The record is an 88-nucleotide RNA from Nematostella vectensis, which matches "mir-2041 microRNA precursor family" in Rfam. NCBI's taxonomy places the organism under Eukaryota, Opisthokonta, Anthozoa, Hexacorallia, Nematostella. The base pairs follow the family's consensus structure, which was predicted with RNAalifold.

[Rfam]
RNA sequence: AACCCAGGGGUAUUUCCCUCUAACGUUUCACAAAAUAAUUAGUUAUUUUUCUCGCGAGUGAAAUGUUAGAGGAAAAUACCCCUGGGUU
Numbered sequence: 001a002a003c004c005c006a007g008g009g010g011u012a013u014u015u016c017c018c019u020c021u022a023a024c025g026u027u028u029c030a031c032a033a034a035a036u037a038a039u040u041a042g043u044u045a046u047u048u049u050u051c052u053c054g055c056g057a058g059u060g061a062a063a064u065g066u067u068a069g070a071g072g073a074a075a076a077u078a079c080c081c082c083u084g085g086g087u088u
Stems, first nucleotide, its partner, number of pairs: 001088015017072015